A member of the RNA family "M-box riboswitch aptamer (ykoK leader)" from Metabacillus arenae, 166 nucleotides long. NCBI's taxonomy places the organism under Bacteria, Bacillati, Bacillota, Caryophanales, Metabacillus. It scores 154 bits against the family's covariance model. M-box riboswitch, also know as ykoK leader is described as a metaloregulatory RNA that sense divalent metals and function as a genetic control element of genes related to divalent metal transport in bacteria. It was first reported upstream of the B.subtilis ykoK gene and genes with related functions in other bacteria.
RNA sequence: AAGGAACUUCGUUAGGUGAGGCUCCUGCAUGGAUAUACGCUGCUGCCCAAAAAUGUCCAAAGACGCCAAUGGGUCAACAGAAAUCAUCGAAUUAAGGUGAUUUUUAAUGCAGCUGGUAAAAAUACCUAUGCCAUGCAGUGCUAAAGCUCUACGAAUGAAGGCGCUC
Numbered sequence: 001a002a003g004g005a006a007c008u009u010c011g012u013u014a015g016g017u018g019a020g021g022c023u024c025c026u027g028c029a030u031g032g033a034u035a036u037a038c039g040c041u042g043c044u045g046c047c048c049a050a051a052a053a054u055g056u057c058c059a060a061a062g063a064c065g066c067c068a069a070u071g072g073g074u075c076a077a078c079a080g081a082a083a084u085c086a087u088c089g090a091a092u093u094a095a096g097g098u099g100a101u102u103u104u105u106a107a108u109g110c111a112g113c114u115g116g117u118a119a120a121a122a123u124a125c126c127u128a129u130g131c132c133a134u135g136c137a138g139u140g141c142u143a144a145a146g147c148u149c150u151a152c153g154a155a156u157g158a159a160g161g162c163g164c165u166c
Stems, first nucleotide, its partner, number of pairs: 007160004011152002013095001015148003020142003025138008039113005045074005054065004080104004086098003115126003